[Rfam]
This 90-nucleotide RNA from Kribbella solani belongs to the Rfam family "Glycine riboswitch aptamer". The pairing is the family consensus, mapped onto this sequence. NCBI's taxonomy places the organism under Bacteria, Actinomycetota, Actinomycetes, Propionibacteriales, Kribbella.

RNA sequence: ACACAACACUCGGGAGAGACCCGUGUCAUCGGGCGCCGAAGGGGCAAUUCCUCCCCGGAACCUCUCAGGCCCACGGACCGAGUGUCACAG
Numbered sequence: 001a002c003a004c005a006a007c008a009c010u011c012g013g014g015a016g017a018g019a020c021c022c023g024u025g026u027c028a029u030c031g032g033g034c035g036c037c038g039a040a041g042g043g044g045c046a047a048u049u050c051c052u053c054c055c056c057g058g059a060a061c062c063u064c065u066c067a068g069g070c071c072c073a074c075g076g077a078c079c080g081a082g083u084g085u086c087a088c089a090g
Stems, first nucleotide, its partner, number of pairs: 006085008020033004035070003038066002042064003048058002